The record is an 83-nucleotide RNA sequence from Falsochrobactrum ovis, which matches "DUF3800-VII RNA" in Rfam. The family's RNA type in Rfam is small RNA. The base pairs follow the family's consensus structure, which is taken from published work.
[Rfam]
Nucleotides: 083
Base pairs, nucleotide, nucleotide: 001078002077003076004075005074006073007072011070013069014068015067016066021065022064023063024062026060027042028041029040031038032037045056046055047054048053
Number, partner (000 for none) and nucleotide at each position: 001078a002077g003076c004075a005074g006073u007072c008000a009000a010000g011070c012000g013069c014068c015067g016066g017000a018000c019000a020000a021065c022064c023063c024062a025000a026060a027042g028041c029040a030000u031038u032037c033000g034000a035000a036000a037032g038031a039000u040029u041028g042027c043000a044000g045056g046055c047054g048053a049000g050000u051000a052000a053048u054047c055046g056045c057000a058000a059000u060026u061000a062024u063023g064022g065021g066016c067015c068014g069013g070011g071000g072007g073006g074005c075004u076003g077002c078001u079000u080000u081000u082000u083000u